[Rfam]
RNA sequence: ACUGGGCUUGGUAGCGCUUGCCUAUAACCCAAGUGGGGGUAUGAAAGUGGGCUGGAUCUUGAGUUGGGUUCUGUAGGUUGGGCUUGGUGUUGCAUUAUCUGGCCUGCCCAUUCCAAGUUGAGAGUUGGUUCAUGUGGCUUGAGCGAAGGCUUGGGUCUCGUGAACCUUAGAGAAGGAGGCAAUGCGUUAGGCUGGUUUCACAGAGCUGCGACAACUCUUCGCUCUCGACAGUGGAAGGAUAACAGGCUUCGGCUCACUAGGCUCGGUUUGCCUAUCGGUCUCACUCAAAGGAACACCCACUUUU
Number, nucleotide and partner (000 for none) at each position: 001a040002c039003u038004g023005g022006g021007c020008u000009u000010g017011g000012u000013a000014g000015c000016g000017c010018u000019u000020g007021c006022c005023u004024a000025u000026a000027a000028c037029c036030c035031a000032a000033g000034u000035g030036g029037g028038g003039g002040u001041a000042u000043g304044a303045a302046a301047g300048u299049g298050g297051g296052c000053u295054g294055g000056a000057u291058c290059u288060u287061g286062a000063g284064u283065u000066g281067g280068g279069u000070u278071c277072u000073g275074u274075a273076g272077g271078u270079u000080g264081g263082g262083c261084u260085u259086g258087g257088u256089g000090u000091u000092g253093c000094a000095u251096u000097a000098u000099c000100u000101g248102g247103c246104c245105u244106g243107c000108c238109c237110a000111u236112u235113c234114c233115a232116a000117g229118u228119u227120g226121a225122g224123a223124g222125u221126u000127g166128g165129u164130u163131c162132a161133u160134g159135u000136g157137g156138c155139u154140u153141g152142a151143g150144c149145g000146a000147a000148g000149g144150c143151u142152u141153g140154g139155g138156u137157c136158u000159c134160g133161u132162g131163a130164a129165c128166c127167u172168u000169a000170g000171a000172g167173a000174a219175g218176g217177a216178g215179g000180c000181a000182a000183u000184g000185c210186g209187u208188u000189a000190g000191g000192c203193u202194g201195g000196u000197u000198u000199c000200a000201c194202a193203g192204a000205g000206c000207u000208g187209c186210g185211a000212c000213a000214a000215c178216u177217c176218u175219u174220c000221g125222c124223u123224c122225u121226c120227g119228a118229c117230a000231g000232u115233g114234g113235a112236a111237g109238g108239a000240u000241a000242a000243c106244a105245g104246g103247c102248u101249u000250c000251g095252g000253c092254u000255c000256a088257c087258u086259a085260g084261g083262c082263u081264c080265g000266g000267u000268u000269u000270g078271c077272c076273u075274a074275u073276c000277g071278g070279u068280c067281u066282c000283a064284c063285u000286c061287a060288a059289a000290g058291g057292a000293a000294c054295a053296c051297c050298c049299a048300c047301u046302u045303u044304u043

The record is a 304-nucleotide sequence from Centaurea solstitialis, which matches "Plant signal recognition particle RNA" in Rfam. A reference for the family is Wild et al. (2002), "Towards the structure of the mammalian signal recognition particle", Curr Opin Struct Biol. Rfam links the family to the GO terms signal recognition particle, endoplasmic reticulum targeting and SRP-dependent cotranslational protein targeting to membrane, signal sequence recognition. The source organism's lineage runs through Eukaryota, eudicotyledons, asterids, Carduoideae and Centaurea.